RNA: Ruegeria cis2 sRNA
Organism: Paracoccus tegillarcae
RNA sequence: UUUGUCUUGUGCGGCACAUAGUUGAUGAAGGCAUAGCCGCGCAUCUGAUCAAUGAUGUGAAACAGGGGGUUCCAUGCAAAAUACGGCAACAUGAAGUUCGGCAGGGUGUUGGCCACGAACAUCUUGCCCGAUGCAAUCAUGUUCAGCCGUG
Number, nucleotide and partner (000 for none) at each position: 001u000002u000003u033004g032005u031006c030007u029008u028009g000010u000011g000012c024013g023014g022015c000016a000017c000018a000019u000020a000021g000022u014023u013024g012025a000026u000027g000028a008029a007030g006031g005032c004033a003034u000035a000036g056037c000038c054039g053040c000041g050042c000043a000044u000045c000046u000047g000048a000049u000050c041051a000052a000053u039054g038055a000056u036057g000058u000059g000060a000061a000062a000063c000064a000065g000066g000067g150068g000069g000070u080071u079072c000073c000074a000075u000076g000077c000078a000079a071080a070081a000082u000083a000084c000085g148086g147087c146088a143089a142090c141091a140092u139093g138094a000095a000096g000097u133098u000099c130100g129101g128102c126103a125104g124105g123106g122107u121108g000109u118110u117111g116112g000113c000114c000115a000116c111117g110118a109119a000120c000121a107122u106123c105124u104125u103126g102127c000128c101129c100130g099131a000132u000133g097134c000135a000136a000137u000138c093139a092140u091141g090142u089143u088144c000145a000146g087147c086148c085149g000150u067151g000